Source information
The family of this 249-nucleotide part of an RNA from Candidatus Altarchaeales archaeon WOR_SM1_SCG is "Archaeal large subunit ribosomal RNA". A reference for the family is Yusupov et al. (2001), "Crystal structure of the ribosome at 5.5 A resolution", Science.
RNA sequence: GUUUACCUGAGGGGCAGGUCCAGUUAGUACGAGAGGAACACUGGGUCGGGGCCUCUGGUCUAUCAGUUGUCUGACAAGGCACUGCUGAGUAGCUACGCCCUAUAUUGGUAAAGGCUGAAAGCAUCUAAGCCUGAAACAAUCCCCAAAAAGAGGUAAACUAAGACGCUUGUAAAAGACAAGUUUAAUAGGUGAGGGGUGUAAGUACCGAGGCAACGAGGUAUUAAGCCCACUCAUACUAACAGUCAUAUC
Numbered sequence: 001g002u003u004u005a006c007c008u009g010a011g012g013g014g015c016a017g018g019u020c021c022a023g024u025u026a027g028u029a030c031g032a033g034a035g036g037a038a039c040a041c042u043g044g045g046u047c048g049g050g051g052c053c054u055c056u057g058g059u060c061u062a063u064c065a066g067u068u069g070u071c072u073g074a075c076a077a078g079g080c081a082c083u084g085c086u087g088a089g090u091a092g093c094u095a096c097g098c099c100c101u102a103u104a105u106u107g108g109u110a111a112a113g114g115c116u117g118a119a120a121g122c123a124u125c126u127a128a129g130c131c132u133g134a135a136a137c138a139a140u141c142c143c144c145a146a147a148a149a150g151a152g153g154u155a156a157a158c159u160a161a162g163a164c165g166c167u168u169g170u171a172a173a174a175g176a177c178a179a180g181u182u183u184a185a186u187a188g189g190u191g192a193g194g195g196g197u198g199u200a201a202g203u204a205c206c207g208a209g210g211c212a213a214c215g216a217g218g219u220a221u222u223a224a225g226c227c228c229a230c231u232c233a234u235a236c237u238a239a240c241a242g243u244c245a246u247a248u249c
Stems, first nucleotide, its partner, number of pairs: 001158008011144004017047008048101005056095003063088005068081005105139003112132005162244003165181005186238003189234005194228003202221005209214001